[Rfam]
RNA sequence: GUAGUCCGAUUCGCAUCAAUCCAUAUAUGUUGGGGUGGGUUGGAGUGGAACUUGAACUAAAUUUCAUCCCAAUCCACUCCAACACGUGGAUUGAGAUAAAUCCGACA
Numbered sequence: 001g002u003a004g005u006c007c008g009a010u011u012c013g014c015a016u017c018a019a020u021c022c023a024u025a026u027a028u029g030u031u032g033g034g035g036u037g038g039g040u041u042g043g044a045g046u047g048g049a050a051c052u053u054g055a056a057c058u059a060a061a062u063u064u065c066a067u068c069c070c071a072a073u074c075c076a077c078u079c080c081a082a083c084a085c086g087u088g089g090a091u092u093g094a095g096a097u098a099a100a101u102c103c104g105a106c107a
Stems, first nucleotide, its partner, number of pairs: 004106003008102004013097001016094009028084005035077009045067003